About this RNA
MIR2617 microRNA precursor family: an 87-nucleotide sequence from Medicago truncatula.
[Rfam]
RNA sequence: GUAGUGUGACAUGCCCGUUUGAGUUUUACUCUGAUGAUGAUUUAUUUAUUAUUAAAUUGAUUUUGGGUAACGGGGUGUUAGAAACUG
Numbered sequence: 001g002u003a004g005u006g007u008g009a010c011a012u013g014c015c016c017g018u019u020u021g022a023g024u025u026u027u028a029c030u031c032u033g034a035u036g037a038u039g040a041u042u043u044a045u046u047u048a049u050u051a052u053u054a055a056a057u058u059g060a061u062u063u064u065g066g067g068u069a070a071c072g073g074g075g076u077g078u079u080a081g082a083a084a085c086u087g
Base pairs, nucleotide, nucleotide: 002087003086004085005084007080008079009078010077011076012075014074015073016072017071018070019069
Rfam links the family to the GO terms miRNA-mediated post-transcriptional gene silencing and RISC complex. NCBI's taxonomy places the organism under Eukaryota, Streptophyta, fabids, Papilionoideae, Medicago.